[Rfam]
RNA sequence: UACAUCUAAGGGCAAACUUACCGAAAGGUAAGGACGCAAAGCUAUGGGCCUAACCGACUUAUUUGUCGCAAGGUAGCCAGUUGCAUAU
Numbered sequence: 001u002a003c004a005u006c007u008a009a010g011g012g013c014a015a016a017c018u019u020a021c022c023g024a025a026a027g028g029u030a031a032g033g034a035c036g037c038a039a040a041g042c043u044a045u046g047g048g049c050c051u052a053a054c055c056g057a058c059u060u061a062u063u064u065g066u067c068g069c070a071a072g073g074u075a076g077c078c079a080g081u082u083g084c085a086u087a088u
Stems, first nucleotide, its partner, number of pairs: 012037002017032006040082004046078002048074003055068004